Overview: Rfam assigns this 120-nucleotide RNA sequence from Populus trichocarpa to the family "MIR480 microRNA precursor family".

[Rfam]
RNA sequence: UAAUCUGUUUGUAAAGAUCAUUGUCUAGUUGUGACAGAUCAACACCCGACUACUUAAAAUCACUUGUUAUCAAGGUUGUCAAUUCCGUUUCGGUAAGUGUUUUGUUUUUUUCAAUUGAAA
Numbered sequence: 001u002a003a004u005c006u007g008u009u010u011g012u013a014a015a016g017a018u019c020a021u022u023g024u025c026u027a028g029u030u031g032u033g034a035c036a037g038a039u040c041a042a043c044a045c046c047c048g049a050c051u052a053c054u055u056a057a058a059a060u061c062a063c064u065u066g067u068u069a070u071c072a073a074g075g076u077u078g079u080c081a082a083u084u085c086c087g088u089u090u091c092g093g094u095a096a097g098u099g100u101u102u103u104g105u106u107u108u109u110u111u112c113a114a115u116u117g118a119a120a
Base pairs, nucleotide, nucleotide: 004119006117007116008114009113013109014108017105018104023100024099026096028094029093030092